The record is a 53-nucleotide RNA from Beta vulgaris, which matches "Plastid-atpF group II-D1 intron" in Rfam.
It scores 55 bits against the family's covariance model.
Plastid atpF is a non-coding RNA (ncRNA) recognised in plastids. It has been reported in the intron group II-D1 region of ATP synthase (atpF) genes.
Rfam links the family to the GO term Group II intron splicing.
RNA sequence: UAUAAAUUUUUUGAUAUAUAGCACUCAUCUCGAUAAAAUAAUUUGAAUCCUUU
Numbered sequence: 001u002a003u004a005a006a007u008u009u010u011u012u013g014a015u016a017u018a019u020a021g022c023a024c025u026c027a028u029c030u031c032g033a034u035a036a037a038a039u040a041a042u043u044u045g046a047a048u049c050c051u052u053u
Stems, first nucleotide, its partner, number of pairs: 011033004016028002